[Rfam]
Shown here is a 105-nucleotide sequence from Yoonia vestfoldensis, a member of the family "Rhizobiales sRNA Atu_At1".
Rfam's curators put it in the seed alignment.
The base pairs follow the family's consensus structure, which was predicted with CMfinder.
Rfam classes the family as a small RNA.
The literature on the family includes a 2012 paper in RNA Biol by Wilms et al., "Deep sequencing uncovers numerous small RNAs on all four replicons of the plant pathogen Agrobacterium tumefaciens".
RNA sequence: CGGCAGGCCUGUCAAUCAGACCUGACGACACAAGGAACGGGCAAAUUUUUCUGAUUUCUUUUCCCGACCAACGCAACGGUAGUCGAGCCUUUAUCUCGCCGGUUU
Numbered sequence: 001c002g003g004c005a006g007g008c009c010u011g012u013c014a015a016u017c018a019g020a021c022c023u024g025a026c027g028a029c030a031c032a033a034g035g036a037a038c039g040g041g042c043a044a045a046u047u048u049u050u051c052u053g054a055u056u057u058c059u060u061u062u063c064c065c066g067a068c069c070a071a072c073g074c075a076a077c078g079g080u081a082g083u084c085g086a087g088c089c090u091u092u093a094u095c096u097c098g099c100c101g102g103u104u105u
Stems, first nucleotide, its partner, number of pairs: 006104004011021003024100001026098003032091004038066004043061002067080003